[Rfam]
RNA sequence: CAAUAACAUACGGAUUCUCAAGGGUGGACGGCAAUCCCCGUAAGAAAGGGGGUGCCGCGAUGAGCGUCUUUCAAUCGCUAAUGCUGAUGAUUGCAUUUGCUGGUUUAGUCGUCUCAAUUGUUACUUUGAUGCAACGUCAAAAGUAAACCCACCCUUGAGCGUAGCGAGCAAGUGGGUGGGCGACGAUCUAUUAAUUUGCUGUUCUCCCUUGUUCAGGAGUCCGGUUAUUGUAGACCGUGGGUGUGUACAAGCACACUUACG
Dot-bracket structure: (((((.(..((((.(.((((((((.((...(((.(((((........))))))))......(((.(.(......(((..........)))........(.((............)).).).).))).....................))..))))))))......................................))))).((((........))))....).))))).....((((((((((......))))))))))
Numbered sequence: 001c002a003a004u005a006a007c008a009u010a011c012g013g014a015u016u017c018u019c020a021a022g023g024g025u026g027g028a029c030g031g032c033a034a035u036c037c038c039c040g041u042a043a044g045a046a047a048g049g050g051g052g053u054g055c056c057g058c059g060a061u062g063a064g065c066g067u068c069u070u071u072c073a074a075u076c077g078c079u080a081a082u083g084c085u086g087a088u089g090a091u092u093g094c095a096u097u098u099g100c101u102g103g104u105u106u107a108g109u110c111g112u113c114u115c116a117a118u119u120g121u122u123a124c125u126u127u128g129a130u131g132c133a134a135c136g137u138c139a140a141a142a143g144u145a146a147a148c149c150c151a152c153c154c155u156u157g158a159g160c161g162u163a164g165c166g167a168g169c170a171a172g173u174g175g176g177u178g179g180g181c182g183a184c185g186a187u188c189u190a191u192u193a194a195u196u197u198g199c200u201g202u203u204c205u206c207c208c209u210u211g212u213u214c215a216g217g218a219g220u221c222c223g224g225u226u227a228u229u230g231u232a233g234a235c236c237g238u239g240g241g242u243g244u245g246u247a248c249a250a251g252c253a254c255a256c257u258u259a260c261g
Stems, first nucleotide, its partner, number of pairs: 001230005007224001010202004015198001017159008026149002031055003035052005062126003066122001068120001075090003099118001101116002204219004236261010

BsrG: a 261-nucleotide RNA from Shouchella lonarensis. The family has 6 seed sequences and 614 matches in Rfam 15.1. The organism belongs to Shouchella, within Bacteria. Rfam describes the family as follows. bsrE, bsrG and bsrH pair through intermolecular interactions with antisense sRNAs. They form type I toxin/antitoxin system that includes an mRNA encoding for a short, toxic peptide (bsrE, bsrG and bsrH) and an antitoxin that is comprised of an antisense RNA. bsrG encodes a 39-amino-acid toxin, and the 180 nucleotide antisense sRNA called SR4 acts as the antitoxin (they overlap by 123 nucleotides). The family's RNA type in Rfam is small RNA.